c-di-AMP riboswitch aptamer (ydaO/yuaA leader): a 149-nucleotide RNA sequence from Streptomyces sp. UH6. The organism belongs to Streptomyces, within Bacteria. It scores 91 bits against the family's covariance model.
RNA sequence: CCGUGCGCUCUGCCGAAUCCCGCAAGGGAACCGGGGAACCACUUUCCGGGGUGAAUCGGGCGUAUCGCGGCUCUUGCCGUAUACGCGCGUAGGAGACCUUCCCGCUCCGAACCCGUCAGCUAACCCGGUAGGCGAGACGGAAGGAAAGG
Numbered sequence: 001c002c003g004u005g006c007g008c009u010c011u012g013c014c015g016a017a018u019c020c021c022g023c024a025a026g027g028g029a030a031c032c033g034g035g036g037a038a039c040c041a042c043u044u045u046c047c048g049g050g051g052u053g054a055a056u057c058g059g060g061c062g063u064a065u066c067g068c069g070g071c072u073c074u075u076g077c078c079g080u081a082u083a084c085g086c087g088c089g090u091a092g093g094a095g096a097c098c099u100u101c102c103c104g105c106u107c108c109g110a111a112c113c114c115g116u117c118a119g120c121u122a123a124c125c126c127g128g129u130a131g132g133c134g135a136g137a138c139g140g141a142a143g144g145a146a147a148g149g
Stems, first nucleotide, its partner, number of pairs: 011134004018029003030129006040048001049114003057089002060086006092108004